The record is a 67-nucleotide RNA sequence from Halopseudomonas phragmitis, which matches "narK RNA" in Rfam. A search with the family's covariance model found it, with a score of 53 bits. The family's consensus secondary structure is taken from published work.
[Rfam]
RNA sequence: GGCACGCACCUUGCUUGCUUCUCGACAGGGCAUCAAUGGCGAUGCCCAUUAACGACAACGGCGUCGU
Dot-bracket structure: ...........................(((((((......)))))))....................